[Rfam]
Nucleotides: 139
Base pairs, nucleotide, nucleotide: 025042026041027040044087045086046085047084048083049082050081051080052079053078061077062076063075064074065073066072067071
Number, partner (000 for none) and nucleotide at each position: 001000a002000c003000a004000u005000c006000u007000g008000u009000c010000a011000a012000a013000g014000g015000g016000g017000a018000g019000u020000a021000g022000c023000g024000g025042u026041g027040g028000a029000a030000u031000c032000a033000a034000g035000u036000g037000a038000u039000u040027c041026c042025a043000a044087a045086a046085u047084a048083a049082a050081g051080u052079c053078g054000u055000c056000a057000u058000u059000a060000c061077a062076u063075g064074a065073u066072g067071g068000a069000u070000u071067u072066c073065a074064u075063c076062a077061u078053c079052g080051g081050c082049u083048u084047u085046a086045u087044u088000g089000g090000c091000a092000g093000a094000a095000c096000a097000u098000g099000c100000u101000a102000a103000g104000c105000g106000a107000g108000a109000c110000c111000u112000u113000u114000g115000c116000c117000c118000a119000a120000u121000c122000g123000u124000g125000g126000g127000u128000u129000a130000g131000g132000u133000c134000u135000c136000g137000c138000u139000u
The family of this 139-nucleotide RNA from Oceanobacillus profundus is "Manganese Mn2+ riboswitch aptamer (yybP-ykoY)". The organism belongs to Oceanobacillus, within Bacteria. Rfam describes the family as follows. This RNA was originally discovered in E. coli during a large scale screen and was named SraF. The family was later found to exist upstream of related families of protein genes in many bacteria, including the the yybP and ykoK genes in B. subtilis. The specific functions of these proteins are unknown, but this structured RNA element may be involved in their genetic regulation as a riboswitch. A search with the family's covariance model found it, with a score of 57 bits.